A member of the RNA family "Small nucleolar RNA U2-19" from Diceros bicornis, 80 nucleotides long. Rfam links the family to the GO terms RNA processing and nucleolus. It scores 82 bits against the family's covariance model. By type it is a C/D-box small nucleolar RNA.

RNA sequence: UUUAAAAAAAGAAAAUAGCUAAAUCUGAGUAUCAGAAGACCUUUCAGUCUUCCUGAUGCGUGAUCUCUGUAGUUCUGAAA
Dot-bracket structure: ............................(((((...((((......))))....))))).....................
Numbered sequence: 001u002u003u004a005a006a007a008a009a010a011g012a013a014a015a016u017a018g019c020u021a022a023a024u025c026u027g028a029g030u031a032u033c034a035g036a037a038g039a040c041c042u043u044u045c046a047g048u049c050u051u052c053c054u055g056a057u058g059c060g061u062g063a064u065c066u067c068u069g070u071a072g073u074u075c076u077g078a079a080a
Stems, first nucleotide, its partner, number of pairs: 029059005037050004